Description: The family of this 230-nucleotide part of an RNA from Metamycoplasma canadense is "Bacterial large subunit ribosomal RNA". Pairs were carried over by alignment from the consensus structure, which is taken from published work. Rfam 15.1 lists 51,934 matches to the family in 10,816 species.
Nucleotides: 230
Base pairs, nucleotide, nucleotide: 005087006086007085008084009083010082011081012080013079014078015077016076017075020043021042022041023040026037027036047054048053057069058068059067060066090228091227093225097218098217099216100215101214102213106194107193108192109191110190111189112188113187114186115185116184117182119151120150121149122148126143127142128141129140130139131138155179156178157177160175161174162173163172196206197205
Number, partner (000 for none) and nucleotide at each position: 001000g002000a003000g004000u005087u006086a007085u008084g009083u010082c011081a012080a013079c014078a015077u016076g017075c018000g019000a020043g021042g022041u023040u024000a025000a026037g027036u028000g029000g030000a031000a032000u033000a034000a035000a036027g037026c038000g039000a040023a041022g042021c043020c044000g045000u046000a047054g048053a049000g050000a051000a052000a053048u054047c055000g056000a057069g058068u059067c060066u061000u062000a063000a064000u065000a066060g067059g068058g069057c070000g071000c072000u073000u074000a075017g076016u077015a078014u079013g080012u081011u082010g083009a084008u085007a086006u087005a088000g089000a090228c091227c092000c093225g094000a095000a096000a097218c098217c099216a100215g101214g102213u103000g104000a105000u106194c107193u108192a109191c110190c111189c112188a113187u114186g115185a116184g117182c118000a119151g120150g121149u122148u123000g124000a125000a126143a127142c128141u129140u130139a131138g132000g133000u134000a135000a136000c137000a138131c139130u140129a141128a142127g143126u144000g145000g146000a147000g148122g149121a150120c151119c152000g153000a154000a155179c156178c157177g158000u159000a160175g161174u162173a163172c164000g165000c166000u167000a168000a169000a170000a171000a172163g173162u174161g175160c176000c177157c178156g179155g180000a181000u182117g183000a184116c185115u186114u187113g188112u189111g190110g191109g192108u193107a194106g195000g196206g197205g198000u199000g200000a201000a202000a203000u204000u205197c206196c207000a208000a209000u210000c211000g212000a213102a214101c215100u216099u217098g218097g219000a220000g221000a222000u223000a224000g225093c226000u227091g228090g229000u230000u